[Rfam]
RNA sequence: UUCUUAUCAAGAGCAGGCGGAGGGACUAGCCCGAUGAAGCCCGGCAACCGGCAUUUAUGCACGGUGCUAAUUCUUGCGGAUUUGAGACAGUUGUUUCGAGUCUGGGAGAUGAGAG
Numbered sequence: 001u002u003c004u005u006a007u008c009a010a011g012a013g014c015a016g017g018c019g020g021a022g023g024g025a026c027u028a029g030c031c032c033g034a035u036g037a038a039g040c041c042c043g044g045c046a047a048c049c050g051g052c053a054u055u056u057a058u059g060c061a062c063g064g065u066g067c068u069a070a071u072u073c074u075u076g077c078g079g080a081u082u083u084g085a086g087a088c089a090g091u092u093g094u095u096u097c098g099a100g101u102c103u104g105g106g107a108g109a110u111g112a113g114a115g
Stems, first nucleotide, its partner, number of pairs: 001115008013042001016041003022032003026076001028074002043068004048064002051060003072107001077104012
Rfam assigns this 115-nucleotide RNA sequence from Paenibacillus cellulosilyticus to the family "SAM riboswitch aptamer (S box leader)". The organism belongs to Paenibacillus, within Bacteria. Rfam describes the family as follows. The SAM riboswitch is found upstream of a number of genes which code for proteins involved in methionine or cysteine biosynthesis in Gram-positive bacteria.